Source information
Shown here is a 46-nucleotide sequence from Acipenser ruthenus, a member of the family "Histone 3' UTR stem-loop". Lineage of the source: Eukaryota > Eumetazoa > Craniata > Actinopterygii > Acipenser. About the family: The mRNAs of metazoan histone genes lack a poly-A tail. 3' end processing occurs at a site between a highly conserved stem-loop (modelled by this family) and a purine rich region around 20 nts downstream (the histone downstream element, or HDE). The stem-loop is bound by a 31 kDa stem-loop binding protein (SLBP - also termed the histone hairpin binding protein, or HBP). Together with U7 snRNA binding of the HDE, SLBP binding nucleate s the formation of the processing complex. It is annotated as a cis-regulatory element.
RNA sequence: CAAAAGGCUCUUCUAAGAGCCACCCACUUUUUUCAUUAAGAGCAUU
Number, nucleotide and partner (000 for none) at each position: 001c000002a000003a000004a000005a000006g021007g020008c019009u018010c017011u016012u000013c000014u000015a000016a011017g010018a009019g008020c007021c006022a000023c000024c000025c000026a000027c000028u000029u000030u000031u000032u000033u000034c000035a000036u000037u000038a000039a000040g000041a000042g000043c000044a000045u000046u000